[Rfam]
This 301-nucleotide RNA sequence from Bursaphelenchus xylophilus belongs to the Rfam family "Metazoan signal recognition particle RNA". Pairs were carried over by alignment from the consensus structure, which is taken from published work. Its family is annotated with signal recognition particle, endoplasmic reticulum targeting and SRP-dependent cotranslational protein targeting to membrane, signal sequence recognition in the Gene Ontology. It is annotated as a non-coding RNA gene. About the family: The signal recognition particle (SRP) is a universally conserved ribonucleoprotein. It is involved in the co-translational targeting of proteins to membranes.

RNA sequence: GCCGGGCGUCGUGGCGGGCGCUUGUAAACCAAGUUUCUGGGUGGCUGAGUUCGGCGGCGCGGUGCGGUGGCGGGUCAACGGUCCUGUCGCGGUGCUGCUGUAGACCGAGUGUCCGUAUCAAGGGCGGCGUCGACAAGGGAUGGCGGCCGAAGGGCUGCGAUUGCUGGUCGGUUAAAGAGAGAAGCACCGGCCCAGGCCCCACAGGGAGCAAGCCAAAUUCUCCGCGCCGUUACAGUGAACGGAUGGCGCUCGCGAGGCACACUCGGCAGGCUGCCGUCACGGUGUCGUCACUCGAAUUUUU
Numbered sequence: 001g002c003c004g005g006g007c008g009u010c011g012u013g014g015c016g017g018g019c020g021c022u023u024g025u026a027a028a029c030c031a032a033g034u035u036u037c038u039g040g041g042u043g044g045c046u047g048a049g050u051u052c053g054g055c056g057g058c059g060c061g062g063u064g065c066g067g068u069g070g071c072g073g074g075u076c077a078a079c080g081g082u083c084c085u086g087u088c089g090c091g092g093u094g095c096u097g098c099u100g101u102a103g104a105c106c107g108a109g110u111g112u113c114c115g116u117a118u119c120a121a122g123g124g125c126g127g128c129g130u131c132g133a134c135a136a137g138g139g140a141u142g143g144c145g146g147c148c149g150a151a152g153g154g155c156u157g158c159g160a161u162u163g164c165u166g167g168u169c170g171g172u173u174a175a176a177g178a179g180a181g182a183a184g185c186a187c188c189g190g191c192c193c194a195g196g197c198c199c200c201a202c203a204g205g206g207a208g209c210a211a212g213c214c215a216a217a218u219u220c221u222c223c224g225c226g227c228c229g230u231u232a233c234a235g236u237g238a239a240c241g242g243a244u245g246g247c248g249c250u251c252g253c254g255a256g257g258c259a260c261a262c263u264c265g266g267c268a269g270g271c272u273g274c275c276g277u278c279a280c281g282g283u284g285u286c287g288u289c290a291c292u293c294g295a296a297u298u299u300u301u
Stems, first nucleotide, its partner, number of pairs: 001045003004023007028042003047299008059288007067280007079273003083270005091263003096259004101254001106252007113242002118238003122233001124230007131170004136165002139162003143158006172176001179222005189214003197206003